Rfam assigns this 73-nucleotide RNA sequence from Lachnospira eligens to the family "tRNA". Rfam classes the family as a transfer RNA. The source organism's lineage runs through Bacteria, Bacillota, Clostridia, Lachnospira and Lachnospira eligens.

RNA sequence: GGGGGUAUAGCUCAGUUGGGAGAGCACCUGCCUUGCAAGCAGGGGGUCAAGGGUUCGAAUCCCUUUAUCUCCA
Numbered sequence: 001g002g003g004g005g006u007a008u009a010g011c012u013c014a015g016u017u018g019g020g021a022g023a024g025c026a027c028c029u030g031c032c033u034u035g036c037a038a039g040c041a042g043g044g045g046g047u048c049a050a051g052g053g054u055u056c057g058a059a060u061c062c063c064u065u066u067a068u069c070u071c072c073a
Stems, first nucleotide, its partner, number of pairs: 001072007010025004027043005049065005